[Rfam]
RNA sequence: CGCCCCGUGAAGAGUCGCCUGCUGUGGCGGCCUGUUUAGUCUCUUUGAGAUUGAACUAGCGGGGCGGGUUUUU
Number, nucleotide and partner (000 for none) at each position: 001c066002g065003c064004c000005c062006c061007g060008u059009g000010a000011a000012g000013a000014g031015u030016c029017g028018c027019c026020u000021g000022c000023u000024g000025u000026g019027g018028c017029g016030g015031c014032c000033u000034g056035u055036u054037u053038a052039g051040u050041c049042u048043c000044u000045u000046u000047g000048a042049g041050a040051u039052u038053g037054a036055a035056c034057u000058a000059g008060c007061g006062g005063g000064g003065c002066g001067g000068g000069u000070u000071u000072u000073u000
The record is a 73-nucleotide RNA, which matches "DUF3800-IX RNA" in Rfam. About the family: Actinobacteria, Firmicutes (1 example), Nitrospirae, Proteobacteria, Verrucomicrobia (1 example). By type it is a small RNA.